A member of the RNA family "Eukaryotic large subunit ribosomal RNA" from Massarina eburnea, 424 nucleotides of a longer RNA. A search with the family's covariance model found it, with a score of 2737 bits. Taxonomically the source falls in Massarina eburnea (Eukaryota, Ascomycota, leotiomyceta, Pleosporomycetidae). Pairs were carried over by alignment from the consensus structure, which is taken from published work.
[Rfam]
RNA sequence: UAACCUUAGAUUAGGUAGAGAUACCUGCUAAACUUAAGCAUAUUAAUAAGCAGAGGAAAAGAAACUAACAGGGAUUGCCCUAGUAACGGCGAGUAAAGCGGCAACAGCUUAAAUUUAAAAUCUAGCUCUCUUUAGGGGUCUAAGUUGUAAUUUGCAGAGGGUGCUUUAGCGUAAGCAGCAGUCUAAGUUCCUUAGAACAGGGCAUCGCAGAGAGUAAGAAUCCUGUAUAUAGUUGCCUGCCUUUGCUGUGUAAAGCCCCUUUAACAAGUUAAGUUGUUUAGGAAUGCAGCUCUAAAUAGGAGGUAAAUUUCUUCUAAAGCUAAAUAUAAGCUAGAGACCAAUAGCGUAUAAGUAGAGUAAUUAAAAGAUAAAAAGCACUUUAGAAAGAGAGUUAAACAGUACGUAAAAUUGUUAAAAGGGAAGC
Numbered sequence: 001u002a003a004c005c006u007u008a009g010a011u012u013a014g015g016u017a018g019a020g021a022u023a024c025c026u027g028c029u030a031a032a033c034u035u036a037a038g039c040a041u042a043u044u045a046a047u048a049a050g051c052a053g054a055g056g057a058a059a060a061g062a063a064a065c066u067a068a069c070a071g072g073g074a075u076u077g078c079c080c081u082a083g084u085a086a087c088g089g090c091g092a093g094u095a096a097a098g099c100g101g102c103a104a105c106a107g108c109u110u111a112a113a114u115u116u117a118a119a120a121u122c123u124a125g126c127u128c129u130c131u132u133u134a135g136g137g138g139u140c141u142a143a144g145u146u147g148u149a150a151u152u153u154g155c156a157g158a159g160g161g162u163g164c165u166u167u168a169g170c171g172u173a174a175g176c177a178g179c180a181g182u183c184u185a186a187g188u189u190c191c192u193u194a195g196a197a198c199a200g201g202g203c204a205u206c207g208c209a210g211a212g213a214g215u216a217a218g219a220a221u222c223c224u225g226u227a228u229a230u231a232g233u234u235g236c237c238u239g240c241c242u243u244u245g246c247u248g249u250g251u252a253a254a255g256c257c258c259c260u261u262u263a264a265c266a267a268g269u270u271a272a273g274u275u276g277u278u279u280a281g282g283a284a285u286g287c288a289g290c291u292c293u294a295a296a297u298a299g300g301a302g303g304u305a306a307a308u309u310u311c312u313u314c315u316a317a318a319g320c321u322a323a324a325u326a327u328a329a330g331c332u333a334g335a336g337a338c339c340a341a342u343a344g345c346g347u348a349u350a351a352g353u354a355g356a357g358u359a360a361u362u363a364a365a366a367g368a369u370a371a372a373a374a375g376c377a378c379u380u381u382a383g384a385a386a387g388a389g390a391g392u393u394a395a396a397c398a399g400u401a402c403g404u405a406a407a408a409u410u411g412u413u414a415a416a417a418g419g420g421a422a423g424c
Stems, first nucleotide, its partner, number of pairs: 024055001025053005035042002065072002076103004086094002106321004112152004118146002121143001123142003127138002157262002159259003164255004169246003173242001175240001178236005187203001189202004206210001214222001272291006298315005355362002378389004